[Rfam]
RNA: mir-393 microRNA precursor family
RNA sequence: AGAGAAAGCAUCCAAAGGGAUCGCAUUGAUCCUAAUUAAGCUGAUUUAUUCCCCAAUAUUUUAUUUUCCUCAUUCGAAAGUUGGAGAAAAAAAAAAAAAAUUCUAAACAUUUGCUUUCUUUUCCGGAUCAUGCGAUCUCUUUGGAUUCAUUCUU
Dot-bracket structure: .(((((.(.((((((((((((.((((.(((((.....(((...............................................................................)))..))))))))).)))))))))))).).)))))